Shown here is a 134-nucleotide RNA from Chrysochloris asiatica, a member of the family "Small nucleolar RNA SNORA70". For this family Rfam cites "Pseudouridine in RNA: what, where, how, and why" (Charette and Gray, IUBMB Life, 2000).

[Rfam]
RNA sequence: CUACAGCCAAUUAAGCCAACCAUCUUCCUUCACGGUGGGGUCUGGUGUGCAAUGACUGCAAACAACAGCCUUCUCAUAGUGUAUGCAGACUAUUGGCAAUGUCUAGGUGGCCCUAAGGGAUUCUGGAGACAGUC
Numbered sequence: 001c002u003a004c005a006g007c008c009a010a011u012u013a014a015g016c017c018a019a020c021c022a023u024c025u026u027c028c029u030u031c032a033c034g035g036u037g038g039g040g041u042c043u044g045g046u047g048u049g050c051a052a053u054g055a056c057u058g059c060a061a062a063c064a065a066c067a068g069c070c071u072u073c074u075c076a077u078a079g080u081g082u083a084u085g086c087a088g089a090c091u092a093u094u095g096g097c098a099a100u101g102u103c104u105a106g107g108u109g110g111c112c113c114u115a116a117g118g119g120a121u122u123c124u125g126g127a128g129a130c131a132g133u134c
Stems, first nucleotide, its partner, number of pairs: 002051001004049002019046004025040004076121002086110001088108001090106002

The family's consensus secondary structure was predicted with PFOLD. Rfam links the family to the GO terms nucleolus and RNA processing. Lineage of the source: Eukaryota > Bilateria > Deuterostomia > Vertebrata > Chrysochloris.